[Rfam]
Alphaproteobacterial sRNA BjrC1505: a 150-nucleotide sequence.
The family's RNA type in Rfam is small RNA.
For this family Rfam cites "Small RNAs of the Bradyrhizobium/Rhodopseudomonas lineage and their analysis" (Madhugiri et al., RNA Biol, 2012).
RNA sequence: UACCGAUCGUUUUGCAUUUAAGGAGUCUUUAAGCUUUCCCCGGUAUUACUGGCGGCGUCCAUCUUCUGGACAUCGAGUGGCUCCUGUCCACUCUGUUUGACGCCCUCCCUGUUAUCCACUUGAGCCGCCGGCAACGGCGGCUCUUUUUUG
Numbered sequence: 001u002a003c004c005g006a007u008c009g010u011u012u013u014g015c016a017u018u019u020a021a022g023g024a025g026u027c028u029u030u031a032a033g034c035u036u037u038c039c040c041c042g043g044u045a046u047u048a049c050u051g052g053c054g055g056c057g058u059c060c061a062u063c064u065u066c067u068g069g070a071c072a073u074c075g076a077g078u079g080g081c082u083c084c085u086g087u088c089c090a091c092u093c094u095g096u097u098u099g100a101c102g103c104c105c106u107c108c109c110u111g112u113u114a115u116c117c118a119c120u121u122g123a124g125c126c127g128c129c130g131g132c133a134a135c136g137g138c139g140g141c142u143c144u145u146u147u148u149u150g
Stems, first nucleotide, its partner, number of pairs: 003052003007024002025047001030045002057071004075093006099113004122143009